The record is a 101-nucleotide sequence from Actinomyces respiraculi, which matches "ZMP/ZTP riboswitch aptamer (pfl RNA motif)" in Rfam.

Nucleotides: 101
Base pairs, nucleotide, nucleotide: 004051005050006049007048008047009046010045011044012043015040016039017089018088019087020086024036025035026034027033078096079095080094081093082092
Number, partner (000 for none) and nucleotide at each position: 001000c002000u003000a004051c005050g006049u007048c008047g009046u010045c011044g012043u013000g014000a015040c016039u017089g018088g019087c020086g021000c022000a023000g024036g025035u026034g027033g028000g029000c030000c031000a032000a033027c034026c035025a036024c037000c038000g039016g040015g041000g042000a043012g044011c045010g046009g047008c048007g049006g050005c051004g052000c053000u054000g055000c056000c057000g058000g059000g060000c061000c062000a063000c064000c065000g066000g067000c068000a069000a070000g071000g072000a073000g074000c075000a076000g077000a078096u079095g080094g081093u082092c083000g084000c085000c086020c087019g088018c089017c090000u091000g092082g093081g094080c095079c096078g097000a098000u099000g100000c101000c
The organism belongs to Actinomyces, within Bacteria.